[Rfam]
Nucleotides: 184
Base pairs, nucleotide, nucleotide: 006155007154008153009152010151077150078149080148081147082146083145084107085106086105087103088102089101090100091099092098114184115183116182117181118180119179120178121177124131125130134160135159136158137157138156
Number, partner (000 for none) and nucleotide at each position: 001000c002000a003000g004000c005000u006155c007154c008153c009152a010151g011000a012000c013000c014000g015000a016000g017000g018000g019000g020000g021000a022000g023000u024000g025000a026000c027000u028000u029000c030000u031000c032000c033000c034000c035000c036000a037000a038000a039000g040000c041000c042000c043000u044000u045000g046000c047000a048000g049000g050000g051000u052000u053000c054000a055000u056000c057000g058000c059000u060000g061000c062000g063000a064000g065000g066000g067000g068000a069000u070000a071000c072000a073000g074000a075000c076000c077150g078149u079000c080148c081147u082146g083145u084107g085106a086105u087103g088102c089101c090100c091099g092098u093000u094000g095000a096000u097000g098092g099091c100090g101089g102088g103087c104000a105086g106085u107084u108000g109000a110000g111000g112000c113000a114184c115183g116182g117181a118180a119179u120178c121177c122000a123000a124131g125130c126000a127000u128000u129000u130125g131124c132000u133000g134160g135159c136158g137157u138156g139000g140000u141000a142000a143000a144000g145083g146082c147081a148080g149078a150077c151010c152009u153008g154007g155006g156138c157137a158136c159135g160134u161000u162000c163000a164000c165000u166000u167000u168000u169000u170000g171000u172000g173000a174000c175000a176000a177121g178120g179119a180118u181117u182116c183115c184114g